[Rfam]
RNA sequence: GAGACCGGAGGCCAACGCCCGACAGCGCUUCGCGCCCUCGGGCGCCACAUUU
Numbered sequence: 001g002a003g004a005c006c007g008g009a010g011g012c013c014a015a016c017g018c019c020c021g022a023c024a025g026c027g028c029u030u031c032g033c034g035c036c037c038u039c040g041g042g043c044g045c046c047a048c049a050u051u052u
Stems, first nucleotide, its partner, number of pairs: 016044007025035004
Rfam assigns this 52-nucleotide sequence from Rhodoplanes roseus to the family "ffh sRNA". For this family Rfam cites "Identification of candidate structured RNAs in the marine organism 'Candidatus Pelagibacter ubique'" (Meyer et al., BMC Genomics, 2009). The family's consensus secondary structure is taken from published work. It scores 51 bits against the family's covariance model. By type it is a small RNA.